[Rfam]
RNA sequence: GGGUGCCGGUGAUGAUUAAAGAGUUAGCAUGGUGAAUUCGAUGAAUUCGCUCACGUGCCACUGGGUGCGCAGCUGUGGUGAUAUGCAUUCUUACGCAGAGGCAUGC
Numbered sequence: 001g002g003g004u005g006c007c008g009g010u011g012a013u014g015a016u017u018a019a020a021g022a023g024u025u026a027g028c029a030u031g032g033u034g035a036a037u038u039c040g041a042u043g044a045a046u047u048c049g050c051u052c053a054c055g056u057g058c059c060a061c062u063g064g065g066u067g068c069g070c071a072g073c074u075g076u077g078g079u080g081a082u083a084u085g086c087a088u089u090c091u092u093a094c095g096c097a098g099a100g101g102c103a104u105g106c
Stems, first nucleotide, its partner, number of pairs: 003104005
Dot-bracket structure: ..(((((............................................................................................)))))..